The family of this 77-nucleotide sequence from Anabas testudineus is "Small nucleolar RNA SNORD66". Pairs were carried over by alignment from the consensus structure, which was predicted with RNAalifold. The source organism's lineage runs through Eukaryota, Bilateria, Neopterygii, Clupeocephala and Anabas. Rfam links the family to the GO terms nucleolus and RNA processing. Rfam classes the family as a C/D-box small nucleolar RNA. A search with the family's covariance model found it, with a score of 85 bits.
[Rfam]
RNA sequence: CUCCCUUGAUGACUUUUAUUUUUGUGCCACGUGUCUGGGCCACUGAUCAUUAGUGAUGGGAUUGAGGAGCUGAGGAG
Numbered sequence: 001c002u003c004c005c006u007u008g009a010u011g012a013c014u015u016u017u018a019u020u021u022u023u024g025u026g027c028c029a030c031g032u033g034u035c036u037g038g039g040c041c042a043c044u045g046a047u048c049a050u051u052a053g054u055g056a057u058g059g060g061a062u063u064g065a066g067g068a069g070c071u072g073a074g075g076a077g
Stems, first nucleotide, its partner, number of pairs: 001077004